[Rfam]
RNA: Rhodo-rpoB RNA
RNA sequence: GGGUCGGGCGCGCAUGAUGGGCAAAUGCGCAGGUAUAGACCCCCUUUUCGAUCUUUGAGCGUUCGCCACGGGCCGCCCCCCCGCUGUGUGA
Numbered sequence: 001g002g003g004u005c006g007g008g009c010g011c012g013c014a015u016g017a018u019g020g021g022c023a024a025a026u027g028c029g030c031a032g033g034u035a036u037a038g039a040c041c042c043c044c045u046u047u048u049c050g051a052u053c054u055u056u057g058a059g060c061g062u063u064c065g066c067c068a069c070g071g072g073c074c075g076c077c078c079c080c081c082c083g084c085u086g087u088g089u090g091a
Base pairs, nucleotide, nucleotide: 001042002041003040004039005038010030011029012028013027014026015025063091064090065089066088067086069083070082071081072080